IS605-orfB-I RNA: a 206-nucleotide sequence.

RNA sequence: GUCCUAUAUAGAUGUAUCAACGCAAGACAGUUGAGCAUCUCCCUUUAGGAUGUUGUUUACCCAGAAGCUUCAGCAACAAUCUUUGUUGUGUGGCUCAAGUCGAAAUAGAGUGAGUUGAAGUGGAAUAGGUUAACCGUAAGACCUUGAGUUGAAAAACUCUAAAAUUGACCUAGAGAUACAAUUUUGUAUUUCCUAGUUACGGUAAU
Numbered sequence: 001g002u003c004c005u006a007u008a009u010a011g012a013u014g015u016a017u018c019a020a021c022g023c024a025a026g027a028c029a030g031u032u033g034a035g036c037a038u039c040u041c042c043c044u045u046u047a048g049g050a051u052g053u054u055g056u057u058u059a060c061c062c063a064g065a066a067g068c069u070u071c072a073g074c075a076a077c078a079a080u081c082u083u084u085g086u087u088g089u090g091u092g093g094c095u096c097a098a099g100u101c102g103a104a105a106u107a108g109a110g111u112g113a114g115u116u117g118a119a120g121u122g123g124a125a126u127a128g129g130u131u132a133a134c135c136g137u138a139a140g141a142c143c144u145u146g147a148g149u150u151g152a153a154a155a156a157c158u159c160u161a162a163a164a165u166u167g168a169c170c171u172a173g174a175g176a177u178a179c180a181a182u183u184u185u186g187u188a189u190u191u192c193c194u195a196g197u198u199a200c201g202g203u204a205a206u
Stems, first nucleotide, its partner, number of pairs: 001051006008044001010040006017034005022028001067121008081110007092101002127144005133203006139165001146159005170196004174191007